RNA sequence: AAACAUCUUCGGGGCAGGGUGAAAUUCCCGACCGGCGGUAAAGUCCGCGAGCGCUGCAGCGUUGAUUUGGUGAGAUUCCAAAACCGACAGUACAGUCUGGAUGAUAGAAGAUAACA
Numbered sequence: 001a002a003a004c005a006u007c008u009u010c011g012g013g014g015c016a017g018g019g020u021g022a023a024a025u026u027c028c029c030g031a032c033c034g035g036c037g038g039u040a041a042a043g044u045c046c047g048c049g050a051g052c053g054c055u056g057c058a059g060c061g062u063u064g065a066u067u068u069g070g071u072g073a074g075a076u077u078c079c080a081a082a083a084c085c086g087a088c089a090g091u092a093c094a095g096u097c098u099g100g101a102u103g104a105u106a107g108a109a110g111a112u113a114a115c116a
Stems, first nucleotide, its partner, number of pairs: 005112006017029003031096002033086002035048004043084002051062003066082005088099003
About this RNA: This 116-nucleotide sequence from Lentihominibacter faecis belongs to the Rfam family "FMN riboswitch aptamer (RFN element)". The source organism's lineage runs through Bacteria, Bacillota, Clostridia, Peptostreptococcales and Lentihominibacter.